Background: This 349-nucleotide RNA from Pontibaca methylaminivorans belongs to the Rfam family "Alphaproteobacteria transfer-messenger RNA". NCBI's taxonomy places the organism under Bacteria, Pseudomonadati, Pseudomonadota, Alphaproteobacteria, Pontibaca. For this family Rfam cites "tmRDB (tmRNA database)" (Zwieb et al., Nucleic Acids Res, 2003).
RNA sequence: CCCCUUCAAAGACGACGUCCCCUGCCCUAUAUUCACCUUGUCCUUCGGGACUAUGGACAUAAAUGCGCUCGUAAUAAGCGGAUCGGACCCGGGGGCGGUACCCGGCGGCUCCACCAGAAACCGUUCAUUUGGCGGUCACGGGGCCGAAACAGGAUCGACGAACGUGUAAAGGGGUUUGCUUUGUCCCGGCGGUCUGCCACCGUUAUCGGCGAGAAAAGUACAAUUGCAAAUGACAAUCGUGCUCCGGUUGCAGUUGCCGCGUAAGCGGUAACAAGACCGAAAACUGAAGUCCCCGGGCCUAGCCGCCCGUGGCGGGGUUCGCAGGCACCUGGCAACAGAAGCCUGCACU
Numbered sequence: 001c002c003c004c005u006u007c008a009a010a011g012a013c014g015a016c017g018u019c020c021c022c023u024g025c026c027c028u029a030u031a032u033u034c035a036c037c038u039u040g041u042c043c044u045u046c047g048g049g050a051c052u053a054u055g056g057a058c059a060u061a062a063a064u065g066c067g068c069u070c071g072u073a074a075u076a077a078g079c080g081g082a083u084c085g086g087a088c089c090c091g092g093g094g095g096c097g098g099u100a101c102c103c104g105g106c107g108g109c110u111c112c113a114c115c116a117g118a119a120a121c122c123g124u125u126c127a128u129u130u131g132g133c134g135g136u137c138a139c140g141g142g143g144c145c146g147a148a149a150c151a152g153g154a155u156c157g158a159c160g161a162a163c164g165u166g167u168a169a170a171g172g173g174g175u176u177u178g179c180u181u182u183g184u185c186c187c188g189g190c191g192g193u194c195u196g197c198c199a200c201c202g203u204u205a206u207c208g209g210c211g212a213g214a215a216a217a218g219u220a221c222a223a224u225u226g227c228a229a230a231u232g233a234c235a236a237u238c239g240u241g242c243u244c245c246g247g248u249u250g251c252a253g254u255u256g257c258c259g260c261g262u263a264a265g266c267g268g269u270a271a272c273a274a275g276a277c278c279g280a281a282a283a284c285u286g287a288a289g290u291c292c293c294c295g296g297g298c299c300u301a302g303c304c305g306c307c308c309g310u311g312g313c314g315g316g317g318u319u320c321g322c323a324g325g326c327a328c329c330u331g332g333c334a335a336c337a338g339a340a341g342c343c344u345g346c347a348c349u
Base pairs, nucleotide, nucleotide: 040051041050042049043048055186056185057184058183059182065179066178067175068174069173070172079164080163083161084160085159089105090104091103092102093101106146107145108144109143110142111141112140187202188201189200193213196210197209198208315330316329317328318327321346322345323344324343325342326341